[Rfam]
RNA sequence: UAUAGGCAUGUGCCACCACACCUGGCUUAAAUGUGUCAUUUAAAAAUUCAGGCCAGGCACAGUGGCUCAUGCCUGUA
Numbered sequence: 001u002a003u004a005g006g007c008a009u010g011u012g013c014c015a016c017c018a019c020a021c022c023u024g025g026c027u028u029a030a031a032u033g034u035g036u037c038a039u040u041u042a043a044a045a046a047u048u049c050a051g052g053c054c055a056g057g058c059a060c061a062g063u064g065g066c067u068c069a070u071g072c073c074u075g076u077a
Base pairs, nucleotide, nucleotide: 001077002076003075004074005073006072007071008070009069010068012066013065014064015063016062021057022056023055024054025053026052027051028050030048031047032046